[Rfam]
RNA sequence: AAGCUUAAGGGCGAAUAUAUCCGCUUCGCGCGUUUCCCUAGUCGUAAGCUGUGAUCCGCAAGGUAGCAUCCUGGAGUUUGGCCCGCUGUGAGUACGUGCACAGAAAGCAGCGGGUU
Numbered sequence: 001a002a003g004c005u006u007a008a009g010g011g012c013g014a015a016u017a018u019a020u021c022c023g024c025u026u027c028g029c030g031c032g033u034u035u036c037c038c039u040a041g042u043c044g045u046a047a048g049c050u051g052u053g054a055u056c057c058g059c060a061a062g063g064u065a066g067c068a069u070c071c072u073g074g075a076g077u078u079u080g081g082c083c084c085g086c087u088g089u090g091a092g093u094a095c096g097u098g099c100a101c102a103g104a105a106a107g108c109a110g111c112g113g114g115u116u
Stems, first nucleotide, its partner, number of pairs: 001079006008072003011045004016040002022032003048067002056063002081115009096101001
Rfam assigns this 116-nucleotide RNA sequence to the family "Flavobacterium-1 RNA".